[Rfam]
RNA sequence: GGCCAGUGAUGUGAGUAAAUAUUUGCUACUCUUGAUGGGUUUCCACCCAUUUGAUGAUUACAUUCCACCAAGAUCUCUGAGGCC
Numbered sequence: 001g002g003c004c005a006g007u008g009a010u011g012u013g014a015g016u017a018a019a020u021a022u023u024u025g026c027u028a029c030u031c032u033u034g035a036u037g038g039g040u041u042u043c044c045a046c047c048c049a050u051u052u053g054a055u056g057a058u059u060a061c062a063u064u065c066c067a068c069c070a071a072g073a074u075c076u077c078u079g080a081g082g083c084c
Stems, first nucleotide, its partner, number of pairs: 001084004

Rfam assigns this 84-nucleotide sequence from Amborella trichopoda to the family "Small nucleolar RNA SNORD24". The family has 14 seed sequences and 2,843 matches in Rfam 15.1. The base pairs follow the family's consensus structure, which was predicted with PFOLD. Taxonomically the source falls in Amborella (Eukaryota, Streptophyta, Euphyllophyta, Spermatophyta). For this family Rfam cites "U24, a novel intron-encoded small nucleolar RNA with two 12 nt long, phylogenetically conserved complementarities to 28S rRNA" (Qu et al., Nucleic Acids Res, 1995).